RNA sequence: CCACACUAGCUGGGGAGGUAGCGGUGCCCUGUAAUCUACAACCCGCUCUAGUAGAAGUGAAUUCCGACUUAAGGUAUAUUUUGGUUGUGGUUUGACUCUAGAAUGAAAUGUUGAGAAUAGAGUCCUAGAUGGCAAAAGAAUAGUGAACCGUGUCAGAUCUUGACAGAAGCAGCACUAAGCUAUUUUCUUUUGGGUAUUUAGGGUAGCUCUAUUUGAGUGGAUUUCUAUUGUAUCACACAGUUGAAAUAUAUCAAGGGUCGGUGUGUGG
Number, nucleotide and partner (000 for none) at each position: 001c268002c267003a266004c265005a264006c263007u000008a000009g058010c057011u056012g030013g029014g028015g027016a000017g025018g000019u023020a000021g000022c000023g019024g000025u017026g000027c015028c014029c013030u012031g000032u000033a000034a000035u055036c054037u053038a052039c051040a000041a000042c000043c000044c000045g000046c000047u000048c000049u000050a000051g039052u038053a037054g036055a035056a011057g010058u009059g000060a000061a000062u000063u000064c261065c260066g259067a258068c257069u256070u255071a000072a000073g252074g251075u250076a249077u248078a000079u000080u245081u244082u243083g242084g241085u240086u239087g238088u237089g236090g000091u000092u000093u232094g231095a000096c000097u000098c000099u227100a226101g225102a224103a000104u000105g223106a222107a000108a218109u217110g000111u000112u000113g000114a000115g214116a213117a212118u211119a210120g209121a208122g207123u206124c202125c201126u200127a199128g198129a197130u193131g000132g000133c000134a191135a190136a189137a188138g187139a184140a183141u182142a181143g180144u179145g000146a000147a000148c000149c000150g175151u174152g173153u172154c000155a000156g000157a000158u167159c166160u165161u000162g000163a000164c000165a160166g159167a158168a000169g000170c000171a000172g153173c152174a151175c150176u000177a000178a000179g144180c143181u142182a141183u140184u139185u000186u000187c138188u137189u136190u135191u134192g000193g130194g000195u000196a000197u129198u128199u127200a126201g125202g124203g000204u000205a000206g123207c122208u121209c120210u119211a118212u117213u116214u115215g000216a000217g109218u108219g000220g000221a000222u106223u105224u102225c101226u100227a099228u000229u000230g000231u094232a093233u000234c000235a000236c089237a088238c087239a086240g085241u084242u083243g082244a081245a080246a000247u000248a077249u076250a075251u074252c073253a000254a000255g070256g069257g068258u067259c066260g065261g064262u000263g006264u005265g004266u003267g002268g001
Rfam assigns this 268-nucleotide RNA sequence from Hypnocyclicus thermotrophus to the family "Bacterial large signal recognition particle RNA".
It is annotated as a non-coding RNA gene.
The source organism's lineage runs through Bacteria, Fusobacteriota, Fusobacteriales, Fusobacteriaceae and Hypnocyclicus.
About the family: The signal recognition particle (SRP) is a universally conserved ribonucleoprotein involved in the co-translational targeting of proteins to membranes.